[Rfam]
RNA sequence: ACGACCGACACGGGGUGCCCGACAGGGCUGAGAACACACCCGGUGAACCUGAUCGAGUUCGUACUCGCGGAGGAAUGUCGUCGAUGAACUGC
Numbered sequence: 001a002c003g004a005c006c007g008a009c010a011c012g013g014g015g016u017g018c019c020c021g022a023c024a025g026g027g028c029u030g031a032g033a034a035c036a037c038a039c040c041c042g043g044u045g046a047a048c049c050u051g052a053u054c055g056a057g058u059u060c061g062u063a064c065u066c067g068c069g070g071a072g073g074a075a076u077g078u079c080g081u082c083g084a085u086g087a088a089c090u091g092c
Stems, first nucleotide, its partner, number of pairs: 006080005011042004016036001017028004048073003054067004